[Rfam]
RNA: Small nucleolar RNA SNORD111
Organism: Orthonyx spaldingii
Nucleotides: 082
Stems, first nucleotide, its partner, number of pairs: 002081004
Number, partner (000 for none) and nucleotide at each position: 001000u002081g003080g004079c005078c006000u007000g008000a009000a010000a011000u012000g013000a014000u015000g016000u017000c018000c019000u020000a021000a022000g023000u024000u025000c026000a027000u028000g029000u030000c031000u032000c033000u034000u035000c036000u037000c038000u039000g040000a041000g042000a043000a044000g045000u046000g047000u048000c049000g050000u051000g052000g053000a054000g055000a056000c057000a058000g059000c060000c061000a062000g063000a064000u065000g066000c067000g068000u069000u070000u071000c072000u073000g074000a075000u076000c077000a078005g079004g080003c081002u082000u